[Rfam]
Nucleotides: 475
Base pairs, nucleotide, nucleotide: 279299280298281297282295283294284293301313302312303311
Number, partner (000 for none) and nucleotide at each position: 001000a002000g003000c004000a005000c006000a007000c008000g009000g010000a011000a012000a013000g014000a015000g016000c017000a018000a019000u020000g021000u022000c023000u024000u025000g026000g027000c028000u029000a030000u031000g032000g033000g034000g035000g036000g037000u038000c039000a040000g041000u042000c043000g044000a045000c046000g047000u048000g049000c050000c051000g052000a053000g054000c055000u056000g057000c058000a059000g060000u061000u062000u063000c064000a065000u066000g067000g068000c069000u070000g071000c072000c073000g074000a075000g076000c077000u078000u079000u080000u081000c082000c083000u084000u085000g086000a087000a088000a089000a090000g091000a092000a093000a094000g095000a096000a097000c098000g099000a100000c101000a102000g103000g104000c105000u106000g107000c108000a109000u110000c111000g112000a113000c114000g115000a116000c117000g118000g119000c120000u121000g122000u123000g124000g125000g126000c127000u128000u129000c130000u131000a132000u133000u134000g135000g136000c137000a138000g139000g140000u141000u142000u143000u144000a145000u146000u147000c148000g149000g150000g151000c152000g153000c154000u155000g156000u157000g158000g159000g160000c161000u162000u163000u164000u165000u166000u167000u168000g169000u170000g171000u172000g173000a174000g175000g176000c177000g178000g179000g180000u181000u182000u183000g184000u185000g186000u187000u188000g189000a190000u191000u192000g193000g194000c195000u196000u197000g198000c199000u200000g201000a202000g203000g204000a205000c206000c207000a208000a209000u210000a211000c212000c213000c214000u215000u216000u217000u218000u219000g220000a221000c222000u223000u224000u225000c226000c227000u228000c229000u230000c231000g232000g233000g234000g235000a236000g237000g238000c239000a240000a241000a242000g243000g244000c245000u246000g247000g248000c249000g250000a251000a252000g253000g254000c255000a256000a257000a258000u259000g260000a261000a262000a263000g264000g265000a266000c267000c268000g269000g270000u271000a272000c273000u274000g275000c276000u277000g278000g279299g280298a281297c282295c283294c284293a285000u286000c287000u288000c289000g290000a291000g292000u293284u294283g295282g296000u297281g298280u299279c300000a301313a302312a303311g304000a305000u306000u307000c308000g309000u310000a311303c312302u313301u314000g315000u316000c317000u318000g319000g320000u321000g322000u323000a324000c325000u326000u327000g328000g329000a330000u331000u332000c333000u334000u335000u336000c337000u338000g339000u340000c341000u342000u343000u344000c345000u346000u347000g348000c349000u350000g351000g352000g353000g354000g355000g356000g357000c358000u359000u360000u361000g362000c363000u364000g365000u366000c367000u368000g369000g370000g371000g372000c373000c374000g375000a376000u377000c378000u379000u380000u381000u382000g383000g384000a385000c386000a387000a388000a389000a390000g391000g392000a393000a394000c395000u396000g397000g398000c399000c400000u401000c402000c403000u404000a405000g406000g407000a408000g409000g410000c411000g412000g413000u414000u415000g416000g417000u418000u419000c420000c421000u422000g423000g424000c425000c426000g427000u428000u429000u430000u431000c432000c433000u434000c435000u436000c437000u438000c439000c440000a441000g442000a443000a444000a445000u446000g447000g448000c449000g450000g451000g452000a453000g454000g455000a456000a457000c458000g459000g460000c461000c462000c463000c464000u465000c466000u467000u468000u469000u470000u471000u472000g473000a474000g475000a